A member of the RNA family "c-di-AMP riboswitch aptamer (ydaO/yuaA leader)" from Actinomadura kijaniata, 149 nucleotides long.
RNA sequence: GCGCCCGGGCCGCCGAAUCCCCUGGUGGGGAGCCGGGGACCCCGCAUCGCGUUCCCUGGGGUGAAUCGGCGCACAUUCUCCGUGCGCCGUAGGGCUCCUCCUGGCCCGAACCCGUCAGCUAACCCGGUAGGCGACGGAGGAGAGGAGAA
Numbered sequence: 001g002c003g004c005c006c007g008g009g010c011c012g013c014c015g016a017a018u019c020c021c022c023u024g025g026u027g028g029g030g031a032g033c034c035g036g037g038g039a040c041c042c043c044g045c046a047u048c049g050c051g052u053u054c055c056c057u058g059g060g061g062u063g064a065a066u067c068g069g070c071g072c073a074c075a076u077u078c079u080c081c082g083u084g085c086g087c088c089g090u091a092g093g094g095c096u097c098c099u100c101c102u103g104g105c106c107c108g109a110a111c112c113c114g115u116c117a118g119c120u121a122a123c124c125c126g127g128u129a130g131g132c133g134a135c136g137g138a139g140g141a142g143a144g145g146a147g148a149a
Stems, first nucleotide, its partner, number of pairs: 011133004018031003032128006042058001059113003067089007092107004

NCBI's taxonomy places the organism under Bacteria, Bacillati, Actinomycetota, Actinomycetes, Actinomadura.